Rfam assigns this 161-nucleotide RNA sequence from Rhizobium sp. PDO1-076 to the family "FMN riboswitch aptamer (RFN element)". Taxonomically the source falls in Rhizobium (Bacteria, Pseudomonadati, Alphaproteobacteria, Rhizobiaceae). Rfam describes the family as follows. The RFN element is a highly conserved domain that is found frequently in the 5'-untranslated regions of prokaryotic mRNAs that encode for flavin mononucleotide (FMN) biosynthesis and transport proteins.

[Rfam]
RNA sequence: AUUCGUUCUCAGGGCGGGGUGCAAUUCCCCACCGGCGGUAAGGAGAUCUCUCCAAGCCCGCGAGCGCCUGUUUCUUCGACGGCAACGUCAGUAGGGGCAGGGUCAGCAGAUCCGGUUUGAUUCCGGAGCCGACGGUAUAGUCCGGAUGAAAGAGAAUGAGG
Numbered sequence: 001a002u003u004c005g006u007u008c009u010c011a012g013g014g015c016g017g018g019g020u021g022c023a024a025u026u027c028c029c030c031a032c033c034g035g036c037g038g039u040a041a042g043g044a045g046a047u048c049u050c051u052c053c054a055a056g057c058c059c060g061c062g063a064g065c066g067c068c069u070g071u072u073u074c075u076u077c078g079a080c081g082g083c084a085a086c087g088u089c090a091g092u093a094g095g096g097g098c099a100g101g102g103u104c105a106g107c108a109g110a111u112c113c114g115g116u117u118u119g120a121u122u123c124c125g126g127a128g129c130c131g132a133c134g135g136u137a138u139a140g141u142c143c144g145g146a147u148g149a150a151a152g153a154g155a156a157u158g159a160g161g
Stems, first nucleotide, its partner, number of pairs: 003159008017029003031141002033131002035061004056129002064107002111127005133144003